[Rfam]
RNA sequence: CUAUAUGUACCCUGUAGAACCGAAUUUGUGUGAGCAGCAAAAAUCGCAAAUUCGUCUCUAGGGGAAUACAUGGG
Numbered sequence: 001c002u003a004u005a006u007g008u009a010c011c012c013u014g015u016a017g018a019a020c021c022g023a024a025u026u027u028g029u030g031u032g033a034g035c036a037g038c039a040a041a042a043a044u045c046g047c048a049a050a051u052u053c054g055u056c057u058c059u060a061g062g063g064g065a066a067u068a069c070a071u072g073g074g
Stems, first nucleotide, its partner, number of pairs: 002072003006068002010064003016059003021054010